[Rfam]
RNA sequence: AAUGUUCUUCGAGGCAAGGUGAAAUUCCUGACCGGCGGUGAAGUCCGCAACCCGCGAAAGCGGUGGAAUCCGAUAAUCGGUACCGAUAGUAUAGUCUAGAUGAUAGAAGAAUGAU
Numbered sequence: 001a002a003u004g005u006u007c008u009u010c011g012a013g014g015c016a017a018g019g020u021g022a023a024a025u026u027c028c029u030g031a032c033c034g035g036c037g038g039u040g041a042a043g044u045c046c047g048c049a050a051c052c053c054g055c056g057a058a059a060g061c062g063g064u065g066g067a068a069u070c071c072g073a074u075a076a077u078c079g080g081u082a083c084c085g086a087u088a089g090u091a092u093a094g095u096c097u098a099g100a101u102g103a104u105a106g107a108a109g110a111a112u113g114a115u
Stems, first nucleotide, its partner, number of pairs: 003113008017029003031095002033085002035048004043083002052063002068081001070080004087098003
FMN riboswitch aptamer (RFN element): a 115-nucleotide RNA from Lactobacillus crispatus. Rfam links the family to the GO term FMN binding.